[Rfam]
RNA sequence: AAGAAAAGAGGUAAACCCGUACGAAAGUCGGGGACGCAAAGCCACGGGUCUAAAGCGUGGGACUAUGACGUCCGGAUCACGCCAUGACAGCCGGGCUGCUCUAA
Numbered sequence: 001a002a003g004a005a006a007a008g009a010g011g012u013a014a015a016c017c018c019g020u021a022c023g024a025a026a027g028u029c030g031g032g033g034a035c036g037c038a039a040a041g042c043c044a045c046g047g048g049u050c051u052a053a054a055g056c057g058u059g060g061g062a063c064u065a066u067g068a069c070g071u072c073c074g075g076a077u078c079a080c081g082c083c084a085u086g087a088c089a090g091c092c093g094g095g096c097u098g099c100u101c102u103a104a
Base pairs, nucleotide, nucleotide: 003101004100011037012036016032017031018030019029021028022027035090040097041096042095043094045093046092047091048088049087050086
RNA: c-di-GMP-I-GGC riboswitch aptamer